[Rfam]
RNA sequence: AAACACCACUAGGGGAGCCGGAUAUCGGCUGAGACGAGCAUAAGCUCGGACCCUUUGAACCUGAUCUGGAUCAUACCAGCGGAGGGAAGUGGCGGACCGUCUGC
Numbered sequence: 001a002a003a004c005a006c007c008a009c010u011a012g013g014g015g016a017g018c019c020g021g022a023u024a025u026c027g028g029c030u031g032a033g034a035c036g037a038g039c040a041u042a043a044g045c046u047c048g049g050a051c052c053c054u055u056u057g058a059a060c061c062u063g064a065u066c067u068g069g070a071u072c073a074u075a076c077c078a079g080c081g082g083a084g085g086g087a088a089g090u091g092g093c094g095g096a097c098c099g100u101c102u103g104c
Stems, first nucleotide, its partner, number of pairs: 006092005011054004017029005036047004060085003066079004
RNA: TPP riboswitch aptamer (THI element)
Organism: Planococcus sp. PAMC 21323